[Rfam]
RNA sequence: GUAAGCCCGGAAGAGGAAGAGAGAGCUCAAGAGCAAUGGGAAUGGGAACAUGGAGGAAAGCAAUGCUUGUUUGUUUGCACCUGUAGUAUCGGAGGUGCAAAUAUUUGGCAUGGAUCCUUUCCUGAUGCCUCCCAUUCCUACCGUUCUUGUGCACUUCUUCCUGUUCCUUUUGGCU
Numbered sequence: 001g002u003a004a005g006c007c008c009g010g011a012a013g014a015g016g017a018a019g020a021g022a023g024a025g026c027u028c029a030a031g032a033g034c035a036a037u038g039g040g041a042a043u044g045g046g047a048a049c050a051u052g053g054a055g056g057a058a059a060g061c062a063a064u065g066c067u068u069g070u071u072u073g074u075u076u077g078c079a080c081c082u083g084u085a086g087u088a089u090c091g092g093a094g095g096u097g098c099a100a101a102u103a104u105u106u107g108g109c110a111u112g113g114a115u116c117c118u119u120u121c122c123u124g125a126u127g128c129c130u131c132c133c134a135u136u137c138c139u140a141c142c143g144u145u146c147u148u149g150u151g152c153a154c155u156u157c158u159u160c161c162u163g164u165u166c167c168u169u170u171u172g173g174c175u
Stems, first nucleotide, its partner, number of pairs: 009166003013162001015160003021156003026151001028149007037140011049127003053123001055122006